[Rfam]
RNA sequence: GGGUGGGACCGGCGCGGCAGAAACCGCCGAACCCUGUCAGGUCCGAGAGGAAGCAGCAGUAAGGCGGCCCUUCUGGGCGCCGCCGGCGAACCUGCCCGAC
Numbered sequence: 001g002g003g004u005g006g007g008a009c010c011g012g013c014g015c016g017g018c019a020g021a022a023a024c025c026g027c028c029g030a031a032c033c034c035u036g037u038c039a040g041g042u043c044c045g046a047g048a049g050g051a052a053g054c055a056g057c058a059g060u061a062a063g064g065c066g067g068c069c070c071u072u073c074u075g076g077g078c079g080c081c082g083c084c085g086g087c088g089a090a091c092c093u094g095c096c097c098g099a100c
Base pairs, nucleotide, nucleotide: 004094005093006092007091009086010085011084012083013082014081015077018075019074020073021072022071024067025066026065027064028063034059035058036057037056042051043050044049

Shown here is a 100-nucleotide sequence from Thermanaerothrix daxensis, a member of the family "Bacterial small signal recognition particle RNA". It is annotated as a non-coding RNA gene. The signal recognition particle (SRP) is a universally conserved ribonucleoprotein involved in the co-translational targeting of proteins to membranes. A reference for the family is Rosenblad et al. (2003), "SRPDB: Signal Recognition Particle Database", Nucleic Acids Res.